[Rfam]
RNA sequence: CUCCGCGAAAUCUAUUUAGGUAGAGCGUUAUAGCGAUUACCAUCGAAGGUAGAGCACUGGAUGAGCUAGGGGGUCCUACCGACUUACCAAACUCAACCAAACUCCGAAUGUCGAUGAGUACAGCAUAGCAGACAGACUAUGGGUGCUAAGGUCCAUAGUCGAGAGGGAAAAAGCCCAGACCGCCAUCUAAGGUCCCUAAAUCAUGGCUAAGUGUUAAAGGAUGUGGGAAAACCAUAACAACUAGGAUGUUGGCUUAGAAGCAGCCAUCAUUUAAAGAAAGCGUAAUAGCUCACUAGUCUAAAUAAGUUUUCCUGCGCCGACAAUGUAACGGGGCUCAAGUCAUGUACCGAAGAUGCGGAUUUGUAUUUUAAUAGUACAAGUGGUAGCGGAGCGUUCCGUAGGCCUGUGAAGGUGAACUGUGAAGUUUGCUGGAGGUAUCGGAAGUGAGAAU
Numbered sequence: 001c002u003c004c005g006c007g008a009a010a011u012c013u014a015u016u017u018a019g020g021u022a023g024a025g026c027g028u029u030a031u032a033g034c035g036a037u038u039a040c041c042a043u044c045g046a047a048g049g050u051a052g053a054g055c056a057c058u059g060g061a062u063g064a065g066c067u068a069g070g071g072g073g074u075c076c077u078a079c080c081g082a083c084u085u086a087c088c089a090a091a092c093u094c095a096a097c098c099a100a101a102c103u104c105c106g107a108a109u110g111u112c113g114a115u116g117a118g119u120a121c122a123g124c125a126u127a128g129c130a131g132a133c134a135g136a137c138u139a140u141g142g143g144u145g146c147u148a149a150g151g152u153c154c155a156u157a158g159u160c161g162a163g164a165g166g167g168a169a170a171a172a173g174c175c176c177a178g179a180c181c182g183c184c185a186u187c188u189a190a191g192g193u194c195c196c197u198a199a200a201u202c203a204u205g206g207c208u209a210a211g212u213g214u215u216a217a218a219g220g221a222u223g224u225g226g227g228a229a230a231a232c233c234a235u236a237a238c239a240a241c242u243a244g245g246a247u248g249u250u251g252g253c254u255u256a257g258a259a260g261c262a263g264c265c266a267u268c269a270u271u272u273a274a275a276g277a278a279a280g281c282g283u284a285a286u287a288g289c290u291c292a293c294u295a296g297u298c299u300a301a302a303u304a305a306g307u308u309u310u311c312c313u314g315c316g317c318c319g320a321c322a323a324u325g326u327a328a329c330g331g332g333g334c335u336c337a338a339g340u341c342a343u344g345u346a347c348c349g350a351a352g353a354u355g356c357g358g359a360u361u362u363g364u365a366u367u368u369u370a371a372u373a374g375u376a377c378a379a380g381u382g383g384u385a386g387c388g389g390a391g392c393g394u395u396c397c398g399u400a401g402g403c404c405u406g407u408g409a410a411g412g413u414g415a416a417c418u419g420u421g422a423a424g425u426u427u428g429c430u431g432g433a434g435g436u437a438u439c440g441g442a443a444g445u446g447a448g449a450a451u
Stems, first nucleotide, its partner, number of pairs: 001391006011024005026131001027129005033124002037122001041116006052105001053103002058099003062095004069088002071085005135160010165176003180358004185354003191348003200345001202344006219318002223315010240297005246270003251265003271275001276291001280289002359381008392446001394443005402436003411430008